[Rfam]
RNA sequence: CAUGCAAUACCAAAGUGCUCAUAGUGCAGGUAGUAGUGUAUAAAAUCUACUGUAACAUGAGCACUUGCAGUCAUGCUAG
Dot-bracket structure: ...(((..((..((((((((((..(((.(((((.............))))))))..))))))))))...))..)))...
A member of the RNA family "mir-17 microRNA precursor family" from Chiloscyllium punctatum, 79 nucleotides long. On this family, see Lagos-Quintana et al., Science 2001: "Identification of novel genes coding for small expressed RNAs". Pairs were carried over by alignment from the consensus structure, which was predicted with RNAalifold. This family represents the microRNA (miRNA) precursor mir-17, family, which includes mir-20, mir-91, and mir-103. miRNAs are transcribed as ~70nt precursors (modelled here) and subsequently processed by the Dicer enzyme to give a ~22nt product. In this case the mature sequence comes from the 3' arm of the precursor.